[Rfam]
RNA sequence: GCAUCGGAAUCUUUCCCAUUCUGUGUGCCACAGUACCAGAGUGGGGAUACACGAUGCCACAGGAACGCAGGGCAAAUCCAGACGAGCUCCCUUUCACCACAGUGGGACUUGUCUCUACAGCUUUGCAACAUUU
Numbered sequence: 001g002c003a004u005c006g007g008a009a010u011c012u013u014u015c016c017c018a019u020u021c022u023g024u025g026u027g028c029c030a031c032a033g034u035a036c037c038a039g040a041g042u043g044g045g046g047a048u049a050c051a052c053g054a055u056g057c058c059a060c061a062g063g064a065a066c067g068c069a070g071g072g073c074a075a076a077u078c079c080a081g082a083c084g085a086g087c088u089c090c091c092u093u094u095c096a097c098c099a100c101a102g103u104g105g106g107a108c109u110u111g112u113c114u115c116u117a118c119a120g121c122u123u124u125g126c127a128a129c130a131u132u133u
Base pairs, nucleotide, nucleotide: 001057002056003055004054005053013047014046015045016044017043018042019041021039022038067126068125069124070123071122072121080114081113082112083111084110085109086108094105095104096103
This 133-nucleotide RNA from Colius striatus belongs to the Rfam family "Small nucleolar RNA SNORA55".
The source organism's lineage runs through Eukaryota, Bilateria, Teleostomi, Amniota and Colius.
ACA55 is a member of the H/ACA class of snoRNA that guide the sites of modification of uridines to pseudouridines.
By type it is an H/ACA-box small nucleolar RNA.